[Rfam]
RNA sequence: GCGGAUGGCUGGAUGACCGCGUGGGGGCAACCCUGCGAGGAAAGUCCGGACUCCAUGAAGUAAGGGUGCCGGGUAACGCCCGGCGGGGGUAACCCCAGGGAAAGCGCCACAGAGAAGAGACCGCCAUGGCGCAAGCCAUGGUAAGGGUGAAACGGUGGAGUAAGAGCCCACCGCGGACCUGGUAACAGGGACGGCACGGCAAGCCCCACCCGGAGCAAUGCCGAAUAGGGGCCUCGCGUGGAAAGGUCCGACGUUCAGCCGUGAGGCUGUCGGAGACCUCCACAUGGGACACUUCAGCCCAAGAGUGCCCGGGUUGGCAGCUAGAUCCUGUCGGUAACGGCAGGGGCAGAGGAAUGGUCAUCCAGAGGGGGCAACUCCUUGGACAAAAUCCGGCUUACAGGCCGUCCGCGCAA
Numbered sequence: 001g002c003g004g005a006u007g008g009c010u011g012g013a014u015g016a017c018c019g020c021g022u023g024g025g026g027g028c029a030a031c032c033c034u035g036c037g038a039g040g041a042a043a044g045u046c047c048g049g050a051c052u053c054c055a056u057g058a059a060g061u062a063a064g065g066g067u068g069c070c071g072g073g074u075a076a077c078g079c080c081c082g083g084c085g086g087g088g089g090u091a092a093c094c095c096c097a098g099g100g101a102a103a104g105c106g107c108c109a110c111a112g113a114g115a116a117g118a119g120a121c122c123g124c125c126a127u128g129g130c131g132c133a134a135g136c137c138a139u140g141g142u143a144a145g146g147g148u149g150a151a152a153c154g155g156u157g158g159a160g161u162a163a164g165a166g167c168c169c170a171c172c173g174c175g176g177a178c179c180u181g182g183u184a185a186c187a188g189g190g191a192c193g194g195c196a197c198g199g200c201a202a203g204c205c206c207c208a209c210c211c212g213g214a215g216c217a218a219u220g221c222c223g224a225a226u227a228g229g230g231g232c233c234u235c236g237c238g239u240g241g242a243a244a245g246g247u248c249c250g251a252c253g254u255u256c257a258g259c260c261g262u263g264a265g266g267c268u269g270u271c272g273g274a275g276a277c278c279u280c281c282a283c284a285u286g287g288g289a290c291a292c293u294u295c296a297g298c299c300c301a302a303g304a305g306u307g308c309c310c311g312g313g314u315u316g317g318c319a320g321c322u323a324g325a326u327c328c329u330g331u332c333g334g335u336a337a338c339g340g341c342a343g344g345g346g347c348a349g350a351g352g353a354a355u356g357g358u359c360a361u362c363c364a365g366a367g368g369g370g371g372c373a374a375c376u377c378c379u380u381g382g383a384c385a386a387a388a389u390c391c392g393g394c395u396u397a398c399a400g401g402c403c404g405u406c407c408g409c410g411c412a413a
Stems, first nucleotide, its partner, number of pairs: 001409010011398001012362007020037007042396003046393005051215004064211005069083005084098001085096004099206002104204002106200003121146002123142008154172005173195001174193002178189004219319004229310004234305001326345008
Dot-bracket structure: ((((((((((((((((((.(((((((....)))))))....[[[.[[[[[((((.........((((((((((.....)))))(((((....)))).)((...(((((............((((((((((....))))))))..)).......(((((.........)))))(((..((((....))))..)).)..)))..)))))))))))))...((((......((((.(......................................................................).)))).....))))......((((((((....))))))))..........)))))))..........................]]]]]]]].).))))))))))....
Notes
A member of the RNA family "Bacterial RNase P class A" from Gemmobacter aquatilis, 413 nucleotides long. The family's RNA type in Rfam is ribozyme. The family's consensus secondary structure is taken from published work. The organism belongs to Gemmobacter, within Bacteria.